[Rfam]
RNA sequence: CGGACAUUCUCUUUGGUUAUCUAGCUGUAUGAGUUUUAUCCGACAUCAUAAAGCUAGGUUACCGGAGUUAAGCUCCU
Numbered sequence: 001c002g003g004a005c006a007u008u009c010u011c012u013u014u015g016g017u018u019a020u021c022u023a024g025c026u027g028u029a030u031g032a033g034u035u036u037u038a039u040c041c042g043a044c045a046u047c048a049u050a051a052a053g054c055u056a057g058g059u060u061a062c063c064g065g066a067g068u069u070a071a072g073c074u075c076c077u
Base pairs, nucleotide, nucleotide: 002076003075004074007071008070011067012066013065014064015063016062017061019059020058021057022056023055024054025053026052028050029049030048031047032046
RNA: mir-9/mir-79 microRNA precursor family
Organism: Atta cephalotes